Rfam assigns this 62-nucleotide RNA sequence from Bacillus cereus to the family "RAGATH-18 RNA". From the family's description: Actinobacteria, Firmicutes, Fusobacteria, Thermotogae (1 example). The organism belongs to Bacillus cereus, within Bacteria.

RNA sequence: CCCUCGGAGAGUUAUAUCAAACGGUAGUAGCUUUGGCAAAACCGGACUCGUAGAACAGGGAA
Numbered sequence: 001c002c003c004u005c006g007g008a009g010a011g012u013u014a015u016a017u018c019a020a021a022c023g024g025u026a027g028u029a030g031c032u033u034u035g036g037c038a039a040a041a042c043c044g045g046a047c048u049c050g051u052a053g054a055a056c057a058g059g060g061a062a
Stems, first nucleotide, its partner, number of pairs: 001060004009049005022044003030037002
Dot-bracket structure: ((((....(((((........(((.....((....))....)))))))).......))))..